[Rfam]
RNA sequence: UAUUGUAAGUAGUCGCAGUAUCUAUUGCGAGAUAGAUAUUGAGGAAAGUCCACGCUCGUCUAGGCUGAGACGCUUAGAGUUUGGGUGCCUGGCGAAAUCAUAAGCCAGGGCAGCAUGAUAUGCUGACGGCGGUGAAAUGAACUCACUGAGUUCAAAAUAGCCUGAAAGUGCCACAGUGACGAAGUCCUUCUGGCGACAGAAGGAGUGGAACGAGGUAAACCCCACUUGCGAGAAACCUAAAUUAUGGUAAGGGAGCUAUCCAGAGGGAAUUCAACUGAUGGAUGGAUUAGAUAAAGUCUACCGCGACGUAUGAUUUAUCUAAUAGAUAGAUGGCUACUACUUCUUUUUAAGAAGUACAGAACGUGGCUUACAGCA
Number, nucleotide and partner (000 for none) at each position: 001u000002a000003u000004u375005g374006u373007a000008a338009g337010u336011a335012g334013u333014c332015g000016c041017a040018g039019u038020a037021u036022c035023u034024a033025u000026u000027g000028c000029g000030a000031g000032a000033u024034a023035g022036a021037u020038a019039u018040u017041g016042a000043g000044g000045a000046a369047a368048g367049u000050c366051c365052a364053c363054g362055c232056u231057c230058g229059u228060c077061u076062a075063g074064g073065c072066u000067g000068a000069g000070a000071c000072g065073c064074u063075u062076a061077g060078a000079g000080u000081u000082u000083g227084g226085g225086u224087g223088c109089c108090u107091g106092g105093c104094g000095a000096a000097a000098u000099c000100a000101u000102a000103a000104g093105c092106c091107a090108g089109g088110g127111c125112a124113g123114c122115a121116u120117g000118a000119u000120a116121u115122g114123c113124u112125g111126a000127c110128g222129g221130c000131g162132g161133u160134g000135a000136a000137a000138u000139g153140a152141a151142c150143u000144c000145a000146c000147u000148g000149a000150g142151u141152u140153c139154a000155a000156a000157a000158u000159a000160g133161c132162c131163u000164g000165a000166a000167a000168g220169u219170g216171c215172c214173a000174c000175a000176g000177u000178g000179a000180c000181g000182a000183a000184g000185u204186c203187c202188u201189u200190c199191u198192g197193g000194c000195g000196a000197c192198a191199g190200a189201a188202g187203g186204a185205g000206u000207g000208g000209a000210a000211c000212g000213a000214g172215g171216u170217a000218a000219a169220c168221c129222c128223c087224a086225c085226u084227u083228g059229c058230g057231a056232g055233a000234a000235a000236c252237c251238u250239a000240a000241a000242u000243u000244a000245u000246g000247g000248u000249a000250a238251g237252g236253g000254a000255g000256c285257u284258a283259u282260c281261c280262a279263g000264a000265g000266g000267g000268a000269a000270u000271u000272c000273a000274a000275c000276u000277g000278a000279u262280g261281g260282a259283u258284g257285g256286a323287u322288u321289a320290g319291a318292u317293a316294a315295a314296g000297u000298c000299u000300a000301c000302c000303g000304c000305g000306a000307c000308g000309u000310a000311u000312g000313a000314u295315u294316u293317a292318u291319c290320u289321a288322a287323u286324a000325g000326a000327u000328a000329g000330a000331u000332g014333g013334c012335u011336a010337c009338u008339a000340c354341u353342u352343c351344u350345u000346u000347u000348u000349a000350a344351g343352a342353a341354g340355u000356a000357c000358a000359g000360a000361a000362c054363g053364u052365g051366g050367c048368u047369u046370a000371c000372a000373g006374c005375a004
Shown here is a 375-nucleotide RNA sequence from Desulfuribacillus stibiiarsenatis, a member of the family "Bacterial RNase P class B". Rfam classes the family as a ribozyme. It scores 272 bits against the family's covariance model. Rfam describes the family as follows. Ribonuclease P (RNase P) is a ubiquitous endoribonuclease, found in archaea, bacteria and eukarya as well as chloroplasts and mitochondria. Its best characterised activity is the generation of mature 5'-ends of tRNAs by cleaving the 5'-leader elements of precursor-tRNAs.